[Rfam]
RNA sequence: UCAUUCUAAGGAAGGGAUGAUGUUCUAAUUGAGACCCAAGAAAAGGAUUCUGAGCUUCAGAGCUUUGAAGGAGCCACUUGGUUUCUGACCUUCCUUUGCACAAA
Numbered sequence: 001u002c003a004u005u006c007u008a009a010g011g012a013a014g015g016g017a018u019g020a021u022g023u024u025c026u027a028a029u030u031g032a033g034a035c036c037c038a039a040g041a042a043a044a045g046g047a048u049u050c051u052g053a054g055c056u057u058c059a060g061a062g063c064u065u066u067g068a069a070g071g072a073g074c075c076a077c078u079u080g081g082u083u084u085c086u087g088a089c090c091u092u093c094c095u096u097u098g099c100a101c102a103a104a
Stems, first nucleotide, its partner, number of pairs: 009095007
The family of this 104-nucleotide RNA sequence from Erinaceus europaeus is "Small nucleolar RNA SNORD124". NCBI's taxonomy places the organism under Eukaryota, Chordata, Teleostomi, Euteleostomi, Erinaceus. Gene Ontology terms of the family: RNA processing and nucleolus. For this family Rfam cites "snoSeeker: an advanced computational package for screening of guide and orphan snoRNA genes in the human genome" (Yang et al., Nucleic Acids Res, 2006). By type it is a C/D-box small nucleolar RNA.